[Rfam]
This 78-nucleotide RNA from Bos taurus belongs to the Rfam family "mir-2387 microRNA precursor family". The family's consensus secondary structure was predicted with RNAalifold.
RNA sequence: AGCGUGGAGGGCCUGGAAGGCCUGGCUUUGCAGCGUGGACUGGACCCUGCAGACCCGGCCUUGGCAAGCCCUUCCGCU
Numbered sequence: 001a002g003c004g005u006g007g008a009g010g011g012c013c014u015g016g017a018a019g020g021c022c023u024g025g026c027u028u029u030g031c032a033g034c035g036u037g038g039a040c041u042g043g044a045c046c047c048u049g050c051a052g053a054c055c056c057g058g059c060c061u062u063g064g065c066a067a068g069c070c071c072u073u074c075c076g077c078u
Base pairs, nucleotide, nucleotide: 001078002077003076004075006074007073008072009071010070011069012068014066015065017062018061019060020059021058022057024055025054027053028052029051030050031049032048033047035045036044